[Rfam]
RNA sequence: UGCCGCAUCGGUUAGAUUGGGAUACUCAUCAAAAAAUUUCUGAAAACCGAGAAAGCUUCAUUCUCCAAUGGCGGGCCACGCCUUCGGGUAGCAUUAUGCCGGUGGAUUACAAAGGAGGUGGGCACUCAAAUCUUAUUAUACUCGGAGUUUCAUCACAUCAUCGGUGCGGUUCUUAUA
Dot-bracket structure: ......................................................(((.((.(((((..((.....(((((((....))).(((...)))..))))....))..))))))))))......................................................
Numbered sequence: 001u002g003c004c005g006c007a008u009c010g011g012u013u014a015g016a017u018u019g020g021g022a023u024a025c026u027c028a029u030c031a032a033a034a035a036a037u038u039u040c041u042g043a044a045a046a047c048c049g050a051g052a053a054a055g056c057u058u059c060a061u062u063c064u065c066c067a068a069u070g071g072c073g074g075g076c077c078a079c080g081c082c083u084u085c086g087g088g089u090a091g092c093a094u095u096a097u098g099c100c101g102g103u104g105g106a107u108u109a110c111a112a113a114g115g116a117g118g119u120g121g122g123c124a125c126u127c128a129a130a131u132c133u134u135a136u137u138a139u140a141c142u143c144g145g146a147g148u149u150u151c152a153u154c155a156c157a158u159c160a161u162c163g164g165u166g167c168g169g170u171u172c173u174u175a176u177a
Stems, first nucleotide, its partner, number of pairs: 055123003059120002062118005069111002076105004080089003091099003